[Rfam]
About this RNA: Rfam assigns this 107-nucleotide sequence from Metabacillus harenarius to the family "Manganese Mn2+ riboswitch aptamer (yybP-ykoY)". Rfam describes the family as follows. This RNA was originally discovered in E. coli during a large scale screen and was named SraF. The family was later found to exist upstream of related families of protein genes in many bacteria, including the the yybP and ykoK genes in B. subtilis. The specific functions of these proteins are unknown, but this structured RNA element may be involved in their genetic regulation as a riboswitch. Lineage of the source: Bacteria > Bacillati > Bacillota > Caryophanales > Metabacillus. A search with the family's covariance model found it, with a score of 51 bits.

RNA sequence: UCUUCUUUCAAAGGGGAGUAGCGUCCAGGGAAACCUGGAAACAAAGUCGUCAUUUCAUGGGAUUUAUCCCAUCGGCUUUGUUGGCAUGAUCGGUGAUUUACAUGCUC
Numbered sequence: 001u002c003u004u005c006u007u008u009c010a011a012a013g014g015g016g017a018g019u020a021g022c023g024u025c026c027a028g029g030g031a032a033a034c035c036u037g038g039a040a041a042c043a044a045a046g047u048c049g050u051c052a053u054u055u056c057a058u059g060g061g062a063u064u065u066a067u068c069c070c071a072u073c074g075g076c077u078u079u080g081u082u083g084g085c086a087u088g089a090u091c092g093g094u095g096a097u098u099u100a101c102a103u104g105c106u107c
Base pairs, nucleotide, nucleotide: 025038026037027036040082041081042080043079044078045077046076047075048074049073057072058071059070060069061068